RNA: Small nucleolar RNA SNORA3/SNORA45 family
Organism: Pelodiscus sinensis
Nucleotides: 132
Base pairs, nucleotide, nucleotide: 002059003058004057005056006055007053008052009051012048013047015046016045017044018043019042020041023038024037025036026035070124071123072122073121074120075119083113084112085111086110089107090106092104093103094102
Number, partner (000 for none) and nucleotide at each position: 001000a002059u003058c004057g005056a006055g007053a008052c009051u010000a011000g012048a013047g014000u015046c016045a017044c018043a019042u020041c021000c022000u023038g024037g025036c026035a027000u028000u029000u030000u031000g032000c033000a034000u035026u036025g037024u038023c039000u040000u041020g042019g043018u044017g045016u046015g047013c048012u049000a050000u051009a052008g053007u054000c055006c056005u057004c058003g059002g060000a061000g062000a063000a064000u065000g066000a067000g068000u069000a070124c071123u072122g073121g074120u075119c076000u077000g078000u079000a080000u081000u082000c083113a084112c085111u086110g087000c088000u089107u090106g091000u092104g093103g094102u095000g096000u097000c098000u099000c100000g101000u102094g103093c104092c105000u106090u107089a108000g109000u110086c111085a112084g113083u114000c115000a116000c117000u118000u119075g120074a121073u122072c123071a124070g125000u126000a127000a128000c129000a130000g131000u132000u